[Rfam]
RNA sequence: AAUCAAUCGAUGAUUAGGAGAGUAAGUUAAAAAUCAUUUCAAGCGAGAUAGAGUUGCUGUGAGUCUAUCAAUGAUUUUAUACUGAAACGCACCUAUGAGAUAAAGAAGUGAGCAGCUUGUGAGCUAGUAGCUUUUUUCGCCGUUAUAGCGUUAUAUAAUAAGUGAGUUACAAGUUUAAUUGUAACUAAUUAGAGUGGUACCGCGGAAUUUUCGUCUCUAUU
Numbered sequence: 001a002a003u004c005a006a007u008c009g010a011u012g013a014u015u016a017g018g019a020g021a022g023u024a025a026g027u028u029a030a031a032a033a034u035c036a037u038u039u040c041a042a043g044c045g046a047g048a049u050a051g052a053g054u055u056g057c058u059g060u061g062a063g064u065c066u067a068u069c070a071a072u073g074a075u076u077u078u079a080u081a082c083u084g085a086a087a088c089g090c091a092c093c094u095a096u097g098a099g100a101u102a103a104a105g106a107a108g109u110g111a112g113c114a115g116c117u118u119g120u121g122a123g124c125u126a127g128u129a130g131c132u133u134u135u136u137u138c139g140c141c142g143u144u145a146u147a148g149c150g151u152u153a154u155a156u157a158a159u160a161a162g163u164g165a166g167u168u169a170c171a172a173g174u175u176u177a178a179u180u181g182u183a184a185c186u187a188a189u190u191a192g193a194g195u196g197g198u199a200c201c202g203c204g205g206a207a208u209u210u211u212c213g214u215c216u217c218u219a220u221u
Base pairs, nucleotide, nucleotide: 007100008099015095016094017093018092025083026082027081030078036072037071038070047069048068049067050066051065052064103136104135105134106133107132108131109130138150139149140148165186166185167184168183169182170181171180191218192217193216194215202214203213204212205211206210
RNA: T-box leader
Organism: Fundicoccus ignavus